This 149-nucleotide RNA from Paenibacillus sp. MY03 belongs to the Rfam family "Group II catalytic intron D1-D4-4". From the family's description: Group II introns are found in rRNA, tRNA and mRNA of organelles in fungi, plants and protists, and also in mRNA in bacteria. Its family is annotated with Group II intron splicing in the Gene Ontology. A search with the family's covariance model found it, with a score of 82 bits.
[Rfam]
RNA sequence: UAGCUGAUGAAAGUUCAGCCGGGGUAAAGGCCAAGCUGCCCUGUAGCUAGUAGGCAGGUCAUGGCGAAAUCCAUGGGUUGAAGCCCUACGAAAAGCAUGAAAAAAAAUAAAAAAAAUCAUGCGAAGCAAGCCCGCAGGCCGUAACAUCC
Numbered sequence: 001u002a003g004c005u006g007a008u009g010a011a012a013g014u015u016c017a018g019c020c021g022g023g024g025u026a027a028a029g030g031c032c033a034a035g036c037u038g039c040c041c042u043g044u045a046g047c048u049a050g051u052a053g054g055c056a057g058g059u060c061a062u063g064g065c066g067a068a069a070u071c072c073a074u075g076g077g078u079u080g081a082a083g084c085c086c087u088a089c090g091a092a093a094a095g096c097a098u099g100a101a102a103a104a105a106a107a108u109a110a111a112a113a114a115a116a117u118c119a120u121g122c123g124a125a126g127c128a129a130g131c132c133c134g135c136a137g138g139c140c141g142u143a144a145c146a147u148c149c
Stems, first nucleotide, its partner, number of pairs: 020043005050089005055080003059076002064071001095122006126142002